The record is a 108-nucleotide RNA from Amycolatopsis sp. YIM 10, which matches "mraW RNA" in Rfam.
The source organism's lineage runs through Bacteria, Actinomycetota, Actinomycetes, Pseudonocardiales and Amycolatopsis.
[Rfam]
RNA sequence: CUUCGCGGAUGCCGUCAGGCCUCUGUCCGCUCAGUGGCCCUGGUGCACCUUCCCCGGCACCAGGUUCGCAGCGGGCGGACGGAGACCUGGCGGCAUCGGCGUUUUCCA
Numbered sequence: 001c002u003u004c005g006c007g008g009a010u011g012c013c014g015u016c017a018g019g020c021c022u023c024u025g026u027c028c029g030c031u032c033a034g035u036g037g038c039c040c041u042g043g044u045g046c047a048c049c050u051u052c053c054c055c056g057g058c059a060c061c062a063g064g065u066u067c068g069c070a071g072c073g074g075g076c077g078g079a080c081g082g083a084g085a086c087c088u089g090g091c092g093g094c095a096u097c098g099g100c101g102u103u104u105u106c107c108a
Stems, first nucleotide, its partner, number of pairs: 010095007018087002021084012034069004039064008